Shown here is a 96-nucleotide RNA sequence from Lacrimispora algidixylanolytica, a member of the family "Purine riboswitch aptamer".
Taxonomically the source falls in Lacrimispora (Bacteria, Bacillati, Bacillota, Lachnospiraceae).
Rfam describes the family as follows. Riboswitches are metabolite binding domains within certain messenger RNAs that serve as precision sensors for their corresponding targets. Allosteric rearrangement of mRNA structure is mediated by ligand binding, and this results in modulation of gene expression.
It scores 50 bits against the family's covariance model.
Rfam links the family to the GO term purine nucleobase biosynthetic process.
[Rfam]
RNA sequence: GAUAUCAGAAUAAAUGAAGCUUAUAUAUGCUCAUAAUUGGUUGAGUGUUUCUACCAGCUACCGGAAUAGUUGUCUAUAAGUUUUCGCAUGAAAUAC
Number, nucleotide and partner (000 for none) at each position: 001g000002a000003u000004a000005u000006c000007a000008g000009a000010a000011u000012a000013a000014a000015u000016g000017a000018a082019g081020c080021u079022u078023a077024u076025a075026u000027a000028u000029g046030c045031u044032c043033a042034u000035a000036a000037u000038u000039g000040g000041u000042u033043g032044a031045g030046u029047g000048u000049u000050u000051c000052u000053a000054c000055c072056a071057g070058c069059u068060a067061c000062c000063g000064g000065a000066a000067u060068a059069g058070u057071u056072g055073u000074c000075u025076a024077u023078a022079a021080g020081u019082u018083u000084u000085c000086g000087c000088a000089u000090g000091a000092a000093a000094u000095a000096c000